[Rfam]
RNA: Glycine riboswitch aptamer
RNA sequence: UGCGACGCAGCGGGAGAGAUCGCCUUCAACGGCGGCGCCGAAGGGGUAUCGCCCCAGAAACUCUCAGGCAAAAGGACCGCCGCGCCCUA
Numbered sequence: 001u002g003c004g005a006c007g008c009a010g011c012g013g014g015a016g017a018g019a020u021c022g023c024c025u026u027c028a029a030c031g032g033c034g035g036c037g038c039c040g041a042a043g044g045g046g047u048a049u050c051g052c053c054c055c056a057g058a059a060a061c062u063c064u065c066a067g068g069c070a071a072a073a074g075g076a077c078c079g080c081c082g083c084g085c086c087c088u089a
Stems, first nucleotide, its partner, number of pairs: 006084003010080004020035004037069003040065002044063003051055001